[Rfam]
RNA sequence: CAGCGGGGGAUUCCUGGAGAUGGGAUUUUAUUUUUGCAGCCAAUAAAUCACAUUGCCAGGGAUUUCCAACUGUC
Number, nucleotide and partner (000 for none) at each position: 001c000002a073003g000004c072005g071006g070007g000008g067009g066010a063011u062012u061013c060014c059015u058016g057017g056018a000019g054020a053021u052022g051023g000024g049025a048026u047027u046028u045029u000030a000031u000032u000033u000034u000035u000036g000037c000038a000039g000040c000041c000042a000043a000044u000045a028046a027047a026048u025049c024050a000051c022052a021053u020054u019055g000056c017057c016058a015059g014060g013061g012062a011063u010064u000065u000066c009067c008068a000069a000070c006071u005072g004073u002074c000
RNA: mir-23 microRNA precursor family